[Rfam]
RNA sequence: UAAGCCUUUCGAAUGACUAGGAGGUGCAAAUUAUUCUGCAACACCUUUUGGUUCAGACAAAGGCUUACAUCAAUUGAUCGGAUAUAAAAUUCCAUUACGGAAUCCGUUUGAGGGAGUCGAACGUUUUCUUCUUUGUUCCUCUUCCGGAUAGCUUCGGACAUUU
Number, nucleotide and partner (000 for none) at each position: 001u000002a000003a065004g064005c063006c062007u061008u000009u060010c000011g000012a000013a000014u000015g053016a052017c051018u050019a049020g048021g047022a046023g000024g044025u043026g042027c000028a000029a000030a000031u000032u000033a000034u000035u000036c000037u000038g000039c000040a000041a000042c026043a025044c024045c000046u022047u021048u020049u019050g018051g017052u016053u015054c000055a000056g000057a000058c000059a000060a009061a007062g006063g005064c004065u003066u000067a000068c000069a000070u000071c000072a000073a000074u000075u000076g000077a000078u000079c156080g155081g154082a153083u000084a000085u151086a000087a000088a127089a126090u000091u000092c000093c123094a000095u000096u121097a000098c000099g000100g118101a117102a000103u115104c114105c113106g000107u000108u000109u000110g000111a000112g000113g105114g104115a103116g000117u101118c100119g000120a000121a096122c000123g093124u000125u000126u089127u088128c000129u000130u000131c000132u000133u000134u000135g000136u000137u148138c147139c146140u000141c000142u000143u000144c000145c000146g139147g138148a137149u000150a000151g085152c000153u082154u081155c080156g079157g000158a000159c000160a000161u000162u000163u000
RNA: Small nucleolar RNA snoR138
Organism: Cucurbita maxima